[Rfam]
RNA: Eukaryotic large subunit ribosomal RNA, nucleotides 1 to 423
RNA sequence: CGAUCUCAAAUCAAGUAAGACUACCCGCUGAACUUAAGCAUAUCAAUAAGCGGAGGAAAAGAAACUAACAAGGAUUCCCCUAGUAACGGCGAGUGAAGCGGGAUGAGCUCAAAUUUAAAAUCUGGCUGGUUUACUAGUCCGAAUUGUAGUUUAAAGAAGCGUUUUCGGUGGCAGUCUCGGUAUAAAUCCUUUGGAAUAGGGUAUCAUAGAGGGUGAGAAUCCCGUCUUUGACUGAGAAUUUGCUACUAUGUGAUACGUUUUCAAAGAGUCGAGUUGUUUGGGAAUGCAGCUCAAAAUGGGUGGUAAAUUUCAUCUAAAGCUAAAUAUUGGCGAGAGACCGAUAGCGAACAAGUACCGUGAGGGAAAGAUGAAAAGAACUUUGAAAAGAGAGUUAAACAGUGCGUGAAAUUGUUGAAAGGGAAA
Numbered sequence: 001c002g003a004u005c006u007c008a009a010a011u012c013a014a015g016u017a018a019g020a021c022u023a024c025c026c027g028c029u030g031a032a033c034u035u036a037a038g039c040a041u042a043u044c045a046a047u048a049a050g051c052g053g054a055g056g057a058a059a060a061g062a063a064a065c066u067a068a069c070a071a072g073g074a075u076u077c078c079c080c081u082a083g084u085a086a087c088g089g090c091g092a093g094u095g096a097a098g099c100g101g102g103a104u105g106a107g108c109u110c111a112a113a114u115u116u117a118a119a120a121u122c123u124g125g126c127u128g129g130u131u132u133a134c135u136a137g138u139c140c141g142a143a144u145u146g147u148a149g150u151u152u153a154a155a156g157a158a159g160c161g162u163u164u165u166c167g168g169u170g171g172c173a174g175u176c177u178c179g180g181u182a183u184a185a186a187u188c189c190u191u192u193g194g195a196a197u198a199g200g201g202u203a204u205c206a207u208a209g210a211g212g213g214u215g216a217g218a219a220u221c222c223c224g225u226c227u228u229u230g231a232c233u234g235a236g237a238a239u240u241u242g243c244u245a246c247u248a249u250g251u252g253a254u255a256c257g258u259u260u261u262c263a264a265a266g267a268g269u270c271g272a273g274u275u276g277u278u279u280g281g282g283a284a285u286g287c288a289g290c291u292c293a294a295a296a297u298g299g300g301u302g303g304u305a306a307a308u309u310u311c312a313u314c315u316a317a318a319g320c321u322a323a324a325u326a327u328u329g330g331c332g333a334g335a336g337a338c339c340g341a342u343a344g345c346g347a348a349c350a351a352g353u354a355c356c357g358u359g360a361g362g363g364a365a366a367g368a369u370g371a372a373a374a375g376a377a378c379u380u381u382g383a384a385a386a387g388a389g390a391g392u393u394a395a396a397c398a399g400u401g402c403g404u405g406a407a408a409u410u411g412u413u414g415a416a417a418g419g420g421a422a423a
Stems, first nucleotide, its partner, number of pairs: 025053005035042002065072002076103004086094002106321004112151004118145002121142002124139004156262002158259004163255001165253002168246007176236006186202001188201004205209001212222002271292007298315005355362002378389004